FMN riboswitch aptamer (RFN element): a 150-nucleotide RNA sequence from Rubrobacter xylanophilus. The RFN element is a highly conserved domain that is found frequently in the 5'-untranslated regions of prokaryotic mRNAs that encode for flavin mononucleotide (FMN) biosynthesis and transport proteins. The base pairs follow the family's consensus structure, which is taken from published work.
[Rfam]
RNA sequence: GGUAACUUUCGGGGGCGGGUGGAAUUCCCGCACCGGCGGUGAGCCCGGGUCCAGCGCGCCCGGGGAGCCCGCGACCCCCCGCCGCAGGCGGGGGUGGAGCCGGUGAGAGUCCGGCGCCGACGGUGAUAGUCCGGAUGGGAGAAAGGAAGC
Dot-bracket structure: ..(..(((((......(((.......)))..[[((((((...........................[[))))...((...............))....(((((.......)))))]])).(((.....]]))).......)))))..)..